Record summary:
A member of the RNA family "Mammalian CPEB3 ribozyme" from Alligator sinensis, 77 nucleotides long. From the family's description: The mammalian CPEB3 ribozyme is a self cleaving RNA located in the second intron of the CPEB3 gene which belongs to a family of genes regulating messenger RNA polyadenylation.
[Rfam]
RNA sequence: GUCGCAAGUUUGUAGGCCACAGCAGAAGUGCCCAUAGUGCAGCUCUAUCAGAUUCCAAUGAACCUGCAAAUCCUGCU
Numbered sequence: 001g002u003c004g005c006a007a008g009u010u011u012g013u014a015g016g017c018c019a020c021a022g023c024a025g026a027a028g029u030g031c032c033c034a035u036a037g038u039g040c041a042g043c044u045c046u047a048u049c050a051g052a053u054u055c056c057a058a059u060g061a062a063c064c065u066g067c068a069a070a071u072c073c074u075g076c077u
Stems, first nucleotide, its partner, number of pairs: 015044003021077005027071001028040003049066003053062003